[Rfam]
Annotation
A member of the RNA family "SAH (S-adenosyl-L-homocysteine) riboswitch aptamer" from Serpentinimonas raichei, 108 nucleotides long. Gene Ontology terms of the family: S-adenosylhomocysteine metabolic process and regulation of gene expression. The family's consensus secondary structure is taken from published work. On this family, see Wang et al., Mol Cell 2008: "Riboswitches that sense S-adenosylhomocysteine and activate genes involved in coenzyme recycling".

Nucleotides: 108
Base pairs, nucleotide, nucleotide: 002058003057004056005055006054007053008052021045022044023043024042025041
Number, partner (000 for none) and nucleotide at each position: 001000u002058g003057u004056u005055u006054c007053g008052a009000g010000g011000a012000g013000c014000g015000u016000u017000g018000c019000a020000g021045c022044a023043c024042c025041g026000a027000g028000c029000c030000c031000c032000a033000u034000g035000c036000g037000g038000c039000g040000g041025c042024g043023g044022u045021g046000u047000g048000a049000g050000g051000c052008u053007c054006g055005a056004a057003a058002c059000c060000g061000g062000u063000c064000a065000c066000g067000g068000c069000a070000c071000c072000c073000g074000c075000g076000c077000c078000g079000u080000u081000g082000g083000c084000c085000c086000a087000c088000c089000c090000g091000c092000a093000a094000c095000g096000a097000c098000g099000c100000u101000c102000a103000c104000c105000c106000a107000c108000u
Rfam 15.1 lists 1,354 matches to the family in 1,132 species.